Shown here is a 54-nucleotide RNA sequence, a member of the family "Plastid-ccsA-ndhD-2 3UTR RNA".
Plastid ccsA-ndhD-2 is a non-coding RNA (ncRNA) recognised in plastids.
The literature on the family includes a 2023 paper in Plant Commun by Richter et al., "Retrograde signaling in plants: A critical review focusing on the GUN pathway and beyond".
Rfam's curators put it in the seed alignment.
RNA sequence: GGAGAGAACCCGGUGAAUCAAAUAUUGUAGUGAUUCACCAGGUUCUCUCCAGUU
Number, nucleotide and partner (000 for none) at each position: 001g000002g049003a048004g047005a046006g045007a044008a043009c042010c041011c000012g039013g038014u037015g036016a035017a034018u033019c032020a031021a000022a000023u000024a000025u000026u000027g000028u000029a000030g000031u020032g019033a018034u017035u016036c015037a014038c013039c012040a000041g010042g009043u008044u007045c006046u005047c004048u003049c002050c000051a000052g000053u000054u000